The record is a 90-nucleotide sequence from Beta vulgaris, which matches "Small nucleolar RNA Z107/R87" in Rfam.

RNA sequence: AAUCGCAGUGAUGACUAUUAAAUUAUCAAGCUCAACAGACCGGAAAACAGGAAUUUCCUGUGUGUGUCGAUAUUUCUUUGCUGAGCGAUU
Numbered sequence: 001a002a003u004c005g006c007a008g009u010g011a012u013g014a015c016u017a018u019u020a021a022a023u024u025a026u027c028a029a030g031c032u033c034a035a036c037a038g039a040c041c042g043g044a045a046a047a048c049a050g051g052a053a054u055u056u057c058c059u060g061u062g063u064g065u066g067u068c069g070a071u072a073u074u075u076c077u078u079u080g081c082u083g084a085g086c087g088a089u090u
Stems, first nucleotide, its partner, number of pairs: 001090006
Dot-bracket structure: ((((((..............................................................................))))))

Rfam classes the family as a C/D-box small nucleolar RNA.
A reference for the family is Barneche et al. (2001), "Identification of 66 box C/D snoRNAs in Arabidopsis thaliana: extensive gene duplications generated multiple isoforms predicting new ribosomal RNA 2'-O-methylation sites", J Mol Biol.